[Rfam]
RNA: TPP riboswitch aptamer (THI element)
RNA sequence: AAGUCGAUUCCGGGGAACUGGUGCAAAGCCGGUUGAGAGGAAGCUGUUACCGCUUCGACCCGCCCACCUGACCCAGAUAAUACUGGCGUAGGGAGAACGAAGGAAAAGCUC
Number, nucleotide and partner (000 for none) at each position: 001a000002a000003g000004u000005c000006g000007a000008u097009u096010c095011c062012g061013g060014g059015g000016a000017a033018c032019u031020g030021g029022u000023g000024c000025a000026a000027a000028g000029c021030c020031g019032g018033u017034u000035g000036a000037g000038a000039g000040g056041a055042a054043g053044c052045u000046g000047u000048u000049a000050c000051c000052g044053c043054u042055u041056c040057g000058a000059c014060c013061c012062g011063c000064c000065c000066a000067c092068c091069u090070g089071a000072c000073c086074c085075a084076g083077a000078u000079a000080a000081u000082a000083c076084u075085g074086g073087c000088g000089u070090a069091g068092g067093g000094a000095g010096a009097a008098c000099g000100a000101a000102g000103g000104a000105a000106a000107a000108g000109c000110u000111c000